This 114-nucleotide RNA sequence from Triplophysa tibetana belongs to the Rfam family "Potassium channel RNA editing signal". A reference for the family is Bhalla et al. (2004), "Control of human potassium channel inactivation by editing of a small mRNA hairpin", Nat Struct Mol Biol. This family represents a group of sequences related to the human potassium channel Kv1.1 hairpin element which directs the efficient modification of an adenosine to inosine by an adenosine deaminase acting on RNA (ADAR). Pairs were carried over by alignment from the consensus structure, which is taken from published work.
[Rfam]
RNA sequence: GUCGGCUACGGAGACAUGAGGCCGGUGACCGUGGGGGGAAAGAUCGUUGGGUCCCUCUGCGCCAUCGCGGGCGUGCUGACCAUCGCGCUCCCGGUGCCCGUCAUCGUCUCCAAC
Numbered sequence: 001g002u003c004g005g006c007u008a009c010g011g012a013g014a015c016a017u018g019a020g021g022c023c024g025g026u027g028a029c030c031g032u033g034g035g036g037g038g039a040a041a042g043a044u045c046g047u048u049g050g051g052u053c054c055c056u057c058u059g060c061g062c063c064a065u066c067g068c069g070g071g072c073g074u075g076c077u078g079a080c081c082a083u084c085g086c087g088c089u090c091c092c093g094g095u096g097c098c099c100g101u102c103a104u105c106g107u108c109u110c111c112a113a114c
Stems, first nucleotide, its partner, number of pairs: 001114002004111002008107004013102003018097001021095002037077002040074001049063002